[Rfam]
RNA sequence: UAUCGACACUCUGGAAAGCGUUCCUUUGAGGAGCCACCGAAGGGGUAAGCCCGCCGCGCCACGCGCCGGGUCAAAGCUCUCAGGUCACCGUGACAGAGGGGGUAUG
Numbered sequence: 001u002a003u004c005g006a007c008a009c010u011c012u013g014g015a016a017a018g019c020g021u022u023c024c025u026u027u028g029a030g031g032a033g034c035c036a037c038c039g040a041a042g043g044g045g046u047a048a049g050c051c052c053g054c055c056g057c058g059c060c061a062c063g064c065g066c067c068g069g070g071u072c073a074a075a076g077c078u079c080u081c082a083g084g085u086c087a088c089c090g091u092g093a094c095a096g097a098g099g100g101g102g103u104a105u106g
Base pairs, nucleotide, nucleotide: 007100009098010097011096012095013094020034021033022032023031036085037084038083039081040080043079044078045077049072
The family of this 106-nucleotide sequence from Sphingomonas taxi is "Glycine riboswitch aptamer". Pairs were carried over by alignment from the consensus structure.